[Rfam]
RNA sequence: GAGAAGUGAGGAUACAGACGUUGUCUUACUUCUGUAGUGAAGACUUCAGAUCCAACUCUGAUCUCACACUGAAG
Numbered sequence: 001g002a003g004a005a006g007u008g009a010g011g012a013u014a015c016a017g018a019c020g021u022u023g024u025c026u027u028a029c030u031u032c033u034g035u036a037g038u039g040a041a042g043a044c045u046u047c048a049g050a051u052c053c054a055a056c057u058c059u060g061a062u063c064u065c066a067c068a069c070u071g072a073a074g
Stems, first nucleotide, its partner, number of pairs: 001065004
Dot-bracket structure: ((((.........................................................)))).........